[Rfam]
RNA sequence: UGUAGCUAUCAAUUCCGUAGUGCAUUGCAGUUGGUACUAGAAAAUACUGCAAGCGCUGCGGACUUGCUAACUCUGAU
Numbered sequence: 001u002g003u004a005g006c007u008a009u010c011a012a013u014u015c016c017g018u019a020g021u022g023c024a025u026u027g028c029a030g031u032u033g034g035u036a037c038u039a040g041a042a043a044a045u046a047c048u049g050c051a052a053g054c055g056c057u058g059c060g061g062a063c064u065u066g067c068u069a070a071c072u073c074u075g076a077u
Stems, first nucleotide, its partner, number of pairs: 007069001010066002014062005021055003025052005